Rfam assigns this 177-nucleotide RNA sequence from Clostridium cadaveris to the family "Lysine riboswitch aptamer". NCBI's taxonomy places the organism under Bacteria, Bacillati, Clostridia, Eubacteriales, Clostridium. Rfam's curators write: Riboswitches are metabolite binding domains within certain messenger RNAs that serve as precision sensors for their corresponding targets. Allosteric rearrangement of mRNA structure is mediated by ligand binding, and this results in modulation of gene expression. Rfam links the family to the GO term lysine biosynthetic process. The family's consensus secondary structure is taken from published work.
[Rfam]
RNA sequence: AACAUAAAUAGAGGCGCAAAUAAAGUGGUAGCAUAUAUUAAAACCCGGGAUGAACCCCUUAGGAUAUAAGCGAAUUCUUUAUUUGCCGAAAGAAUUUAUAGGUUCAUCUAUAAAUUCUUGGGAUUAAGGUACAACAUCCUUACUCCUGCCAUGAAAAUAUGGAGCGCUAUUUAUGUA
Numbered sequence: 001a002a003c004a005u006a007a008a009u010a011g012a013g014g015c016g017c018a019a020a021u022a023a024a025g026u027g028g029u030a031g032c033a034u035a036u037a038u039u040a041a042a043a044c045c046c047g048g049g050a051u052g053a054a055c056c057c058c059u060u061a062g063g064a065u066a067u068a069a070g071c072g073a074a075u076u077c078u079u080u081a082u083u084u085g086c087c088g089a090a091a092g093a094a095u096u097u098a099u100a101g102g103u104u105c106a107u108c109u110a111u112a113a114a115u116u117c118u119u120g121g122g123a124u125u126a127a128g129g130u131a132c133a134a135c136a137u138c139c140u141u142a143c144u145c146c147u148g149c150c151a152u153g154a155a156a157a158u159a160u161g162g163a164g165c166g167c168u169a170u171u172u173a174u175g176u177a
Stems, first nucleotide, its partner, number of pairs: 006172006016086009031071002034068005090119012120147004125142005149162005